[Rfam]
RNA sequence: CUUUGUAUUUUUCCACAGCUUUCUUGAACUGCAUAGAAAAGGGCUUCAAUUGCCGAAGGCUGCCAAUUUUGCGGUUCAAUAAAGCUGUGGGAAAUUACAGAGG
Number, nucleotide and partner (000 for none) at each position: 001c000002u000003u100004u099005g098006u097007a096008u000009u000010u000011u000012u000013c090014c089015a088016c000017a086018g085019c084020u083021u082022u081023c000024u079025u078026g077027a076028a000029c074030u073031g072032c071033a070034u000035a000036g000037a000038a000039a000040a000041g000042g000043g000044c000045u000046u000047c000048a000049a000050u000051u000052g000053c000054c000055g000056a000057a000058g000059g000060c000061u000062g000063c000064c000065a000066a000067u000068u000069u000070u033071g032072c031073g030074g029075u000076u027077c026078a025079a024080u000081a022082a021083a020084g019085c018086u017087g000088u015089g014090g013091g000092a000093a000094a000095u000096u007097a006098c005099a004100g003101a000102g000103g000
Shown here is a 103-nucleotide sequence from Asparagus officinalis, a member of the family "MIR396 microRNA precursor family".
Lineage of the source: Eukaryota > Streptophytina > Tracheophyta > Mesangiospermae > Asparagus.
Gene Ontology terms of the family: miRNA-mediated post-transcriptional gene silencing and RISC complex.